RNA: Saccharopolyspora sRNA 350
RNA sequence: UCCAGGGUGAACCGCCAGCGCGCCUGCGGCGACGGGGGGUCGCCCCCGGCGUGGUCGCCGUCGGACAGCGUCGCCCGCACGACGCUGUCGCCGUACUGGCCGGUCUGGAGUUUGGCGGCGCGGCCGUGCACGAUCAGGAGCAGGCUGCCGGCCGGCUCGCCGGCCCGCGCGAUCGUCUCGCCCCGGUCGAACUCCCGCUGCUCGAACAGCCCGGCGAGCGUGUCGAGCACCGCGGCGUCGUCGAACCCGCGCAGCAGCGGCAGCUCGGUCAGGCUCGGCGGGACCACCCGUACGCGGGAGCCCGCACUCGUGAAACUCACCCGGCCGCCGCCCACCGGGUAGCUGAGCCGCCGGUUGACCCGGUAGCUUCCGCCGGCCACCUCGACCCAGGGGAGCACCCGCAGCAGCCAGCGCGGGGAGAUCUCCCGCAUCUGCGCGACCGUCUUGGUCGUCGUGGCGAGCGUACGCGCCGCCGCGGUGUCCAAGCUCAGCCGUGUGUCUCUCUG
Numbered sequence: 001u002c003c004a005g006g007g008u009g010a011a012c013c014g015c016c017a018g019c020g021c022g023c024c025u026g027c028g029g030c031g032a033c034g035g036g037g038g039g040u041c042g043c044c045c046c047c048g049g050c051g052u053g054g055u056c057g058c059c060g061u062c063g064g065a066c067a068g069c070g071u072c073g074c075c076c077g078c079a080c081g082a083c084g085c086u087g088u089c090g091c092c093g094u095a096c097u098g099g100c101c102g103g104u105c106u107g108g109a110g111u112u113u114g115g116c117g118g119c120g121c122g123g124c125c126g127u128g129c130a131c132g133a134u135c136a137g138g139a140g141c142a143g144g145c146u147g148c149c150g151g152c153c154g155g156c157u158c159g160c161c162g163g164c165c166c167g168c169g170c171g172a173u174c175g176u177c178u179c180g181c182c183c184c185g186g187u188c189g190a191a192c193u194c195c196c197g198c199u200g201c202u203c204g205a206a207c208a209g210c211c212c213g214g215c216g217a218g219c220g221u222g223u224c225g226a227g228c229a230c231c232g233c234g235g236c237g238u239c240g241u242c243g244a245a246c247c248c249g250c251g252c253a254g255c256a257g258c259g260g261c262a263g264c265u266c267g268g269u270c271a272g273g274c275u276c277g278g279c280g281g282g283a284c285c286a287c288c289c290g291u292a293c294g295c296g297g298g299a300g301c302c303c304g305c306a307c308u309c310g311u312g313a314a315a316c317u318c319a320c321c322c323g324g325c326c327g328c329c330g331c332c333c334a335c336c337g338g339g340u341a342g343c344u345g346a347g348c349c350g351c352c353g354g355u356u357g358a359c360c361c362g363g364u365a366g367c368u369u370c371c372g373c374c375g376g377c378c379a380c381c382u383c384g385a386c387c388c389a390g391g392g393g394a395g396c397a398c399c400c401g402c403a404g405c406a407g408c409c410a411g412c413g414c415g416g417g418g419a420g421a422u423c424u425c426c427c428g429c430a431u432c433u434g435c436g437c438g439a440c441c442g443u444c445u446u447g448g449u450c451g452u453c454g455u456g457g458c459g460a461g462c463g464u465a466c467g468c469g470c471c472g473c474c475g476c477g478g479u480g481u482c483c484a485a486g487c488u489c490a491g492c493c494g495u496g497u498g499u500c501u502c503u504c505u506g
Base pairs, nucleotide, nucleotide: 001385002384004382005381009377012324014322018320020318022316025313032311033310034309035308036307038303039302042301043300045298046297047296048295051230052229055226056225057224059222060221061220062108064106074099075098077096079094080093081092083090114219119214123210124209126207127206132203133202135200136199137198138196140194143193144192149189150188154183155182157180158175159174163170164169232291233290234289237287238286240284241283242282246280248278250277251276253275254274255273258267259266326339328337348376349375350374352372353371354370357369358368360366388428390426391425392424393423394422396420398418400415401414402413404412434473435472436471440467442466443465444463445461446460448458449457475504477500478499479498481496483494
Dot-bracket structure: ((.((...(..(.(...(.(.(..(......(((((.((..((.((((..((..(((.((((.(.........((.(.(((.(......).))).).))......).).....(....(...((.((....((.((((.(..((....((...((.(((...((....))...))....).))....))..))).).))).))..)).))...)....)))).)))..)).(((..((.(((...(.(.((.(((..((......)).....)))))).).))).)).)))...)))).))))...))))).)..).).).).).(.(........).)........(((.(((..((.(.....).))))).))))...)).))..(.(((((.(.(.(((.(.......))))..).).))))).).....(((...(.(((((.((.......)).)).).)))...))).(.(((.(.(..........).).)))...)..